[Rfam]
RNA sequence: UUGGAUGUGAGGAUCCUUUCCCCAAAUGAUCGACUAUGAUUAUACUAUGCGCAAAUGUAAUCCCAUCUCAGGAUUCCAAGCCAGAAAUCUGAUCCAU
Numbered sequence: 001u002u003g004g005a006u007g008u009g010a011g012g013a014u015c016c017u018u019u020c021c022c023c024a025a026a027u028g029a030u031c032g033a034c035u036a037u038g039a040u041u042a043u044a045c046u047a048u049g050c051g052c053a054a055a056u057g058u059a060a061u062c063c064c065a066u067c068u069c070a071g072g073a074u075u076c077c078a079a080g081c082c083a084g085a086a087a088u089c090u091g092a093u094c095c096a097u
Stems, first nucleotide, its partner, number of pairs: 002096004